Shown here is a 63-nucleotide RNA, a member of the family "nhaA-I RNA". Acidobacteria, Alphaproteobacteria, Betaproteobacteria and Gammaproteobacteria, Verrucomicrobia, cand. division NC10. By type it is a riboswitch. The sequence is in the family's curated seed alignment.

RNA sequence: GGGUUUCAGCUUUACCGCCCUGGUGAAGCUGGGAGGUUCAGUGCAUUGGUCGGGCCGCCAAUG
Numbered sequence: 001g002g003g004u005u006u007c008a009g010c011u012u013u014a015c016c017g018c019c020c021u022g023g024u025g026a027a028g029c030u031g032g033g034a035g036g037u038u039c040a041g042u043g044c045a046u047u048g049g050u051c052g053g054g055c056c057g058c059c060a061a062u063g
Base pairs, nucleotide, nucleotide: 005033006032007031008030009029010028011027012026013025014024015023044063045062046061047060048059049058050057